RNA sequence: AGGGAUCACAUAUAAGUUAUGUAUCCGAAUUCAGUCUUCCUAAAAAGAGUUUCUGGGGUUUCCUGCUUGUAGUUCCUUAGAUAGUGCUGCAAGUCUCAAAUAACCAGAUACAUCA
Numbered sequence: 001a002g003g004g005a006u007c008a009c010a011u012a013u014a015a016g017u018u019a020u021g022u023a024u025c026c027g028a029a030u031u032c033a034g035u036c037u038u039c040c041u042a043a044a045a046a047g048a049g050u051u052u053c054u055g056g057g058g059u060u061u062c063c064u065g066c067u068u069g070u071a072g073u074u075c076c077u078u079a080g081a082u083a084g085u086g087c088u089g090c091a092a093g094u095c096u097c098a099a100a101u102a103a104c105c106a107g108a109u110a111c112a113u114c115a
Stems, first nucleotide, its partner, number of pairs: 002026002008022004052108003065094008075084001

Overview: This 115-nucleotide sequence from Anisodus acutangulus belongs to the Rfam family "Small nucleolar RNA snoR104". NCBI's taxonomy places the organism under Eukaryota, Streptophytina, Embryophyta, Spermatophyta, Anisodus. The base pairs follow the family's consensus structure, which was predicted with WAR. Rfam classes the family as an H/ACA-box small nucleolar RNA.